RNA sequence: GUAGACCACAAGGGGAGCAUUAUGCUGAGAGUGAAUAUUUAUUCUGACCCUUUGAACCUGUUAGUUAGCACUAGCGUAGGGAUGUGGACAUAGUCUUUU
Numbered sequence: 001g002u003a004g005a006c007c008a009c010a011a012g013g014g015g016a017g018c019a020u021u022a023u024g025c026u027g028a029g030a031g032u033g034a035a036u037a038u039u040u041a042u043u044c045u046g047a048c049c050c051u052u053u054g055a056a057c058c059u060g061u062u063a064g065u066u067a068g069c070a071c072u073a074g075c076g077u078a079g080g081g082a083u084g085u086g087g088a089c090a091u092a093g094u095c096u097u098u099u
Stems, first nucleotide, its partner, number of pairs: 006087005011051004016045001017025003033044004057080004061074004

This 99-nucleotide sequence from Cytobacillus horneckiae belongs to the Rfam family "TPP riboswitch aptamer (THI element)".
It scores 68 bits against the family's covariance model.
The source organism's lineage runs through Bacteria, Bacillota, Caryophanales, Bacillaceae and Cytobacillus.